[Rfam]
RNA: SAH (S-adenosyl-L-homocysteine) riboswitch aptamer
RNA sequence: CCAUCCGAGGAGCGUUGCAGCACUCAUCAGUGCGAGGCUCGGAUUCCAUCCGCAACGACGCUCACCCACU
Numbered sequence: 001c002c003a004u005c006c007g008a009g010g011a012g013c014g015u016u017g018c019a020g021c022a023c024u025c026a027u028c029a030g031u032g033c034g035a036g037g038c039u040c041g042g043a044u045u046c047c048a049u050c051c052g053c054a055a056c057g058a059c060g061c062u063c064a065c066c067c068a069c070u
Stems, first nucleotide, its partner, number of pairs: 003044006021032004